[Rfam]
RNA sequence: GUGCAUAUGAUGUAAAAAUUUAAGCUCCUGAGACUGGUGAUGUCUUCAAAGGAACCACUGAUGCAC
Numbered sequence: 001g002u003g004c005a006u007a008u009g010a011u012g013u014a015a016a017a018a019u020u021u022a023a024g025c026u027c028c029u030g031a032g033a034c035u036g037g038u039g040a041u042g043u044c045u046u047c048a049a050a051g052g053a054a055c056c057a058c059u060g061a062u063g064c065a066c
Stems, first nucleotide, its partner, number of pairs: 001066005
This 66-nucleotide sequence from Camelus dromedarius belongs to the Rfam family "Small nucleolar RNA SNORD42". The base pairs follow the family's consensus structure, which was predicted with PFOLD. About the family: snoRNA U42 is found in intron 3 of the ribosomal protein L23a (RPL23a) gene in humans and is also present in mice. On this family, see Galardi et al., Mol Cell Biol 2002: "Purified box C/D snoRNPs are able to reproduce site-specific 2'-O-methylation of target RNA in vitro". Taxonomically the source falls in Camelus (Eukaryota, Opisthokonta, Metazoa, Tylopoda). Its family is annotated with RNA processing and nucleolus in the Gene Ontology.